Background: The family of this 84-nucleotide RNA from Ovis aries is "mir-181 microRNA precursor family". The family's consensus secondary structure was predicted with PFOLD. For this family Rfam cites "New microRNAs from mouse and human" (Lagos-Quintana et al., RNA, 2003).

[Rfam]
RNA sequence: UUGCUUCAGUGAACAUUCAACGCUGUCGGUGAGUUUGGAAUUAAAAAUCAAAACCAUCGACCGUUGAUUGUACCCUAUGGCCAA
Numbered sequence: 001u002u003g004c005u006u007c008a009g010u011g012a013a014c015a016u017u018c019a020a021c022g023c024u025g026u027c028g029g030u031g032a033g034u035u036u037g038g039a040a041u042u043a044a045a046a047a048u049c050a051a052a053a054c055c056a057u058c059g060a061c062c063g064u065u066g067a068u069u070g071u072a073c074c075c076u077a078u079g080g081c082c083a084a
Stems, first nucleotide, its partner, number of pairs: 001084003004080002008076001014070002017067006025061007033054004